A member of the RNA family "UnaL2 LINE 3' element" from Salmo salar, 54 nucleotides long. Rfam describes the family as follows. The eel long interspersed element (LINE) UnaL2 and its partner short interspersed element (SINE) share a conserved 3' tail containing a stem-loop that is critical for their retrotransposition. Presumably, the first step of retrotransposition is the recognition of their 3' tails by UnaL2-encoded reverse transcriptase. The family's consensus secondary structure is taken from published work. NCBI's taxonomy places the organism under Eukaryota, Opisthokonta, Metazoa, Protacanthopterygii, Salmo. Gene Ontology term of the family: transposition, RNA-mediated. For this family Rfam cites "Solution structure of an RNA stem-loop derived from the 3' conserved region of eel LINE UnaL2" (Baba et al., RNA, 2004).
[Rfam]
RNA sequence: CUUCAACCAAUUUGUAAGUCACUCUGGAUAAGAGCGUCUGCUAAAUGUCUUAAA
Numbered sequence: 001c002u003u004c005a006a007c008c009a010a011u012u013u014g015u016a017a018g019u020c021a022c023u024c025u026g027g028a029u030a031a032g033a034g035c036g037u038c039u040g041c042u043a044a045a046u047g048u049c050u051u052a053a054a
Stems, first nucleotide, its partner, number of pairs: 013043001014041003020036001022034004